[Rfam]
RNA: TPP riboswitch aptamer (THI element)
RNA sequence: GGAAGCUACUAGGGGUGCCCUUACACAGAAGGGCUGAGAGGAAAACCAUUUGUUUUCUAACUCUUGAACCUGAUCUGGAUGAUACCAGCGGAGGGAAGUGGUCAGACGAGCGA
Numbered sequence: 001g002g003a004a005g006c007u008a009c010u011a012g013g014g015g016u017g018c019c020c021u022u023a024c025a026c027a028g029a030a031g032g033g034c035u036g037a038g039a040g041g042a043a044a045a046c047c048a049u050u051u052g053u054u055u056u057c058u059a060a061c062u063c064u065u066g067a068a069c070c071u072g073a074u075c076u077g078g079a080u081g082a083u084a085c086c087a088g089c090g091g092a093g094g095g096a097a098g099u100g101g102u103c104a105g106a107c108g109a110g111c112g113a
Stems, first nucleotide, its partner, number of pairs: 006101005011064004017034005041057005069094003075088004